[Rfam]
RNA sequence: AGGGUAGUAUCUUAAUUGAACUGCACCUGCUUAUUAUUUUACUGUAAUUAAAUAGUCUGCCUUGAUCAUGUACGACAGGGACGGAGAA
Numbered sequence: 001a002g003g004g005u006a007g008u009a010u011c012u013u014a015a016u017u018g019a020a021c022u023g024c025a026c027c028u029g030c031u032u033a034u035u036a037u038u039u040u041a042c043u044g045u046a047a048u049u050a051a052a053u054a055g056u057c058u059g060c061c062u063u064g065a066u067c068a069u070g071u072a073c074g075a076c077a078g079g080g081a082c083g084g085a086g087a088a
Stems, first nucleotide, its partner, number of pairs: 001028003004024005010019002057084003060080005066075002